[Rfam]
RNA sequence: GUGAUACGAAAUUUUAAUAGCCUUCUAUUCACUGUGCCAUCUCAGUAUCCGUAGAUGAUCAGAGGGGAAAAGAACGGCUAGAUGAACCAUCGCCAGCGUCCUCAUACUGUCCGGAUCGAUUAGUUUUACUUUACUGGGUUCGGUCGGUAACUGCGCAAGCGAAACAUCU
Dot-bracket structure: ...................((.((.......((.((.(((((..........)))))..)).))........))..))............(((..(((........(((.(((((((...................))))))).)))......)))..)))........
Numbered sequence: 001g002u003g004a005u006a007c008g009a010a011a012u013u014u015u016a017a018u019a020g021c022c023u024u025c026u027a028u029u030c031a032c033u034g035u036g037c038c039a040u041c042u043c044a045g046u047a048u049c050c051g052u053a054g055a056u057g058a059u060c061a062g063a064g065g066g067g068a069a070a071a072g073a074a075c076g077g078c079u080a081g082a083u084g085a086a087c088c089a090u091c092g093c094c095a096g097c098g099u100c101c102u103c104a105u106a107c108u109g110u111c112c113g114g115a116u117c118g119a120u121u122a123g124u125u126u127u128a129c130u131u132u133a134c135u136g137g138g139u140u141c142g143g144u145c146g147g148u149a150a151c152u153g154c155g156c157a158a159g160c161g162a163a164a165c166a167u168c169u
Stems, first nucleotide, its partner, number of pairs: 020078002023074002032064002035061002038057005091161003096156003107147003111143007